Rfam assigns this 84-nucleotide RNA sequence from Cohnella lubricantis to the family "c-di-GMP-I riboswitch aptamer". Pairs were carried over by alignment from the consensus structure, which is taken from published work. The match comes from Rfam's covariance-model search (81 bits).
RNA sequence: AAAACGAAACGGCAAACCCAUUGAAAAAUGGGGGCGCAAAACUUCAGGCCUAAGGAUGAUAUCUAUGGUAGCUGGGUUGCCGAA
Numbered sequence: 001a002a003a004a005c006g007a008a009a010c011g012g013c014a015a016a017c018c019c020a021u022u023g024a025a026a027a028a029u030g031g032g033g034g035c036g037c038a039a040a041a042c043u044u045c046a047g048g049c050c051u052a053a054g055g056a057u058g059a060u061a062u063c064u065a066u067g068g069u070a071g072c073u074g075g076g077u078u079g080c081c082g083a084a
Stems, first nucleotide, its partner, number of pairs: 012037002017032006040078004045074003048069003055063003
The organism belongs to Cohnella, within Bacteria.